Annotation:
This 95-nucleotide sequence belongs to the Rfam family "GP20-a RNA".

RNA sequence: UUUCCUCCCACCCGCGGGAGGUUUAAACGCGCGGGACGGCGCACCGGGGAGCGGCCCCGGAUCUACAAGCUAAAGCGACGCCGGAGAAAGGAGAA
Numbered sequence: 001u002u003u004c005c006u007c008c009c010a011c012c013c014g015c016g017g018g019a020g021g022u023u024u025a026a027a028c029g030c031g032c033g034g035g036a037c038g039g040c041g042c043a044c045c046g047g048g049g050a051g052c053g054g055c056c057c058c059g060g061a062u063c064u065a066c067a068a069g070c071u072a073a074a075g076c077g078a079c080g081c082c083g084g085a086g087a088a089a090g091g092a093g094a095a
Stems, first nucleotide, its partner, number of pairs: 005020004011035005037083005044060005
The family's RNA type in Rfam is cis-regulatory element.